[Rfam]
RNA sequence: CGCGGCGGUGUGCGUCGAAGGGCAGGUCGCGAGACCGCCUGGAGCCGCCGUCGGUGCAGAU
Numbered sequence: 001c002g003c004g005g006c007g008g009u010g011u012g013c014g015u016c017g018a019a020g021g022g023c024a025g026g027u028c029g030c031g032a033g034a035c036c037g038c039c040u041g042g043a044g045c046c047g048c049c050g051u052c053g054g055u056g057c058a059g060a061u
Stems, first nucleotide, its partner, number of pairs: 001056001003053008012045002020040002026035003
Shown here is a 61-nucleotide part of an RNA from Aphis glycines, a member of the family "Eukaryotic large subunit ribosomal RNA". NCBI's taxonomy places the organism under Eukaryota, Eumetazoa, Bilateria, Paraneoptera, Aphis. Its family is annotated with ribosome and structural constituent of ribosome in the Gene Ontology. The base pairs follow the family's consensus structure, which is taken from published work.